[Rfam]
A member of the RNA family "Small nucleolar RNA Z266" from Beta vulgaris, 93 nucleotides long. The family's consensus secondary structure was predicted with PFOLD. Gene Ontology terms of the family: nucleolus and RNA processing. By type it is a C/D-box small nucleolar RNA.
RNA sequence: GGAUGGCAAAAAUGAUGAUUCAAUUACAUGUGUGAAGGAUACCAUUCCUGUUGAACACAUUUUAAAGCUUAUUGAUAUCCUGAUUUGCCAAGU
Numbered sequence: 001g002g003a004u005g006g007c008a009a010a011a012a013u014g015a016u017g018a019u020u021c022a023a024u025u026a027c028a029u030g031u032g033u034g035a036a037g038g039a040u041a042c043c044a045u046u047c048c049u050g051u052u053g054a055a056c057a058c059a060u061u062u063u064a065a066a067g068c069u070u071a072u073u074g075a076u077a078u079c080c081u082g083a084u085u086u087g088c089c090a091a092g093u
Stems, first nucleotide, its partner, number of pairs: 001093001004090007